This 325-nucleotide RNA sequence from Tachuris rubrigastra belongs to the Rfam family "7SK RNA". It is annotated as a non-coding RNA gene. The family has 45 seed sequences and 49,373 matches in Rfam 15.1. The family's consensus secondary structure is taken from published work. Rfam describes the family as follows. 7SK was discovered as an abundant small nuclear RNA in the mid-70s but a possible function has only recently been suggested. Two independent studies have found that 7SK RNA binds the CDK9/cyclin T complex (known as elongation factor P-TEFb). P-TEFb activates transcription by phosphorylating the C-terminal domain of RNA polymerase II. This process is negatively regulated by the 7SK RNP. The secondary structure of 7SK RNA shown here was proposed by Wasserman and Steitz on the basis of chemical modification and enzymatic cleavage experiments. The source organism's lineage runs through Eukaryota, Opisthokonta, Tetrapoda, Dinosauria and Tachuris. A search with the family's covariance model found it, with a score of 179 bits.
[Rfam]
RNA sequence: GGAUGUGAGGGUGAUUUGUCUGUGACUUCUGGCACCCUACUGAUUGCAAGGGUUGAUUUGACUGAUUUGGGUAGUUGGGCAGGUGACCCCUUUCUCCCUCAAUGUUACCUGUGUGUCCCUCCCAAAGCUGUGUGCUUGGCUGAUGAGGAUGACCUUCCUCAUAGAUACAGCAUCAUUCACUGGUCAAGUAUAUACAGUAGCUGCACUCCCCUUCUAGAAACUCCAAAAAGCUCAAAGUCCAUUUGUGCAGGAAGGUAAGGGCUAAUCUUCCAAGACUGAAGACACAUCCAAGUGAGGAGCUGCAUGCAGCAGUCUGCCAUUUUUU
Numbered sequence: 001g002g003a004u005g006u007g008a009g010g011g012u013g014a015u016u017u018g019u020c021u022g023u024g025a026c027u028u029c030u031g032g033c034a035c036c037c038u039a040c041u042g043a044u045u046g047c048a049a050g051g052g053u054u055g056a057u058u059u060g061a062c063u064g065a066u067u068u069g070g071g072u073a074g075u076u077g078g079g080c081a082g083g084u085g086a087c088c089c090c091u092u093u094c095u096c097c098c099u100c101a102a103u104g105u106u107a108c109c110u111g112u113g114u115g116u117c118c119c120u121c122c123c124a125a126a127g128c129u130g131u132g133u134g135c136u137u138g139g140c141u142g143a144u145g146a147g148g149a150u151g152a153c154c155u156u157c158c159u160c161a162u163a164g165a166u167a168c169a170g171c172a173u174c175a176u177u178c179a180c181u182g183g184u185c186a187a188g189u190a191u192a193u194a195c196a197g198u199a200g201c202u203g204c205a206c207u208c209c210c211c212u213u214c215u216a217g218a219a220a221c222u223c224c225a226a227a228a229a230g231c232u233c234a235a236a237g238u239c240c241a242u243u244u245g246u247g248c249a250g251g252a253a254g255g256u257a258a259g260g261g262c263u264a265a266u267c268u269u270c271c272a273a274g275a276c277u278g279a280a281g282a283c284a285c286a287u288c289c290a291a292g293u294g295a296g297g298a299g300c301u302g303c304a305u306g307c308a309g310c311a312g313u314c315u316g317c318c319a320u321u322u323u324u325u
Stems, first nucleotide, its partner, number of pairs: 001108001003106001006101006013093002018090001024087001026085001028083004033078001035074001037070003042067004046062001117170001120165002122139004127135002141161002147158003200267001202265001206261002210259001212257001214255001221251002227246001228244003290325003294320001296318002299313005